Notes:
Bacterial small subunit ribosomal RNA: a 355-nucleotide part of an RNA from Lactobacillus xujianguonis. Clan: SSU clan. The source organism's lineage runs through Bacteria, Bacillota, Bacilli, Lactobacillales and Lactobacillus.
[Rfam]
RNA sequence: GGCGUAAAGCGAGCGCAGGCGGAGAAAUAAGUCUGAUGUGAAAGCCCUCGGCUUAACCGAGGAAGUGCAUCAGAAACUGUUUUUCUUGAGUGCAGAAGAGGAGAGUGGAACUCCAUGUGUAGCGGUGGAAUGCGUAGAUAUAUGGAAGAACACCAGUGGCGAAGGCGGCUCUCUGGUCUGUAACUGACGCUGAGGCUCGAAAGCAUGGGUAGCGAACAGGAUUAGAUACCCUGGUAGUCCAUGCCGUAAACGAUGAGUGCUAAGUGUUGGGAGGUUUCCGCCUCUCAGUGCUGCAGCUAACGCAUUAAGCACUCCGCCUGGGGAGUACGACCGCAAGGUUGAAACUCAAAGGAAU
Numbered sequence: 001g002g003c004g005u006a007a008a009g010c011g012a013g014c015g016c017a018g019g020c021g022g023a024g025a026a027a028u029a030a031g032u033c034u035g036a037u038g039u040g041a042a043a044g045c046c047c048u049c050g051g052c053u054u055a056a057c058c059g060a061g062g063a064a065g066u067g068c069a070u071c072a073g074a075a076a077c078u079g080u081u082u083u084u085c086u087u088g089a090g091u092g093c094a095g096a097a098g099a100g101g102a103g104a105g106u107g108g109a110a111c112u113c114c115a116u117g118u119g120u121a122g123c124g125g126u127g128g129a130a131u132g133c134g135u136a137g138a139u140a141u142a143u144g145g146a147a148g149a150a151c152a153c154c155a156g157u158g159g160c161g162a163a164g165g166c167g168g169c170u171c172u173c174u175g176g177u178c179u180g181u182a183a184c185u186g187a188c189g190c191u192g193a194g195g196c197u198c199g200a201a202a203g204c205a206u207g208g209g210u211a212g213c214g215a216a217c218a219g220g221a222u223u224a225g226a227u228a229c230c231c232u233g234g235u236a237g238u239c240c241a242u243g244c245c246g247u248a249a250a251c252g253a254u255g256a257g258u259g260c261u262a263a264g265u266g267u268u269g270g271g272a273g274g275u276u277u278c279c280g281c282c283u284c285u286c287a288g289u290g291c292u293g294c295a296g297c298u299a300a301c302g303c304a305u306u307a308a309g310c311a312c313u314c315c316g317c318c319u320g321g322g323g324a325g326u327a328c329g330a331c332c333g334c335a336a337g338g339u340u341g342a343a344a345c346u347c348a349a350a351g352g353a354a355u
Stems, first nucleotide, its partner, number of pairs: 001318003009315001011198004016192001018191003022085007030078002032074009046062006089185003092181005100174007107151001112146007122133003159166002203244006212238002217233004255314006263292012296303002320347003329340004